[Rfam]
RNA: Small nucleolar RNA snR80
RNA sequence: AGUCGUUUGAAUACACUCUGGGGUCAAGUUUUUUCUCUGUACUAGGUUCCAAUUUAAAUUUCAAACAAGAUCAAUUGACAACUUACUCACCAAGAUACGCCGGUUAUGUUUCUAUAUAUGGUGAAGUUAACUUCGAGUUAAAUUCAUUUGGCUAUAUUGGUCCAUUUUCAGUGUCAUACAU
Number, nucleotide and partner (000 for none) at each position: 001a000002g000003u000004c000005g000006u000007u064008u063009g062010a000011a000012u000013a000014c000015a000016c000017u000018c000019u051020g050021g049022g048023g047024u046025c000026a000027a043028g042029u041030u000031u000032u000033u000034u000035c000036u000037c000038u000039g000040u000041a029042c028043u027044a000045g000046g024047u023048u022049c021050c020051a019052a000053u000054u000055u000056a000057a000058a000059u000060u000061u000062c009063a008064a007065a000066c000067a000068a000069g000070a000071u000072c000073a000074a000075u000076u000077g175078a174079c173080a000081a000082c000083u000084u000085a000086c000087u000088c000089a000090c160091c159092a158093a157094g000095a155096u154097a153098c000099g152100c151101c150102g149103g148104u000105u000106a000107u000108g000109u000110u000111u000112c000113u000114a000115u000116a000117u000118a000119u000120g000121g000122u000123g000124a000125a000126g000127u000128u000129a000130a000131c000132u000133u000134c000135g000136a000137g000138u000139u000140a000141a000142a000143u000144u000145c000146a000147u000148u103149u102150g101151g100152c099153u097154a096155u095156a000157u093158u092159g091160g090161u000162c000163c000164a000165u000166u000167u000168u000169c000170a000171g000172u000173g079174u078175c077176a000177u000178a000179c000180a000181u000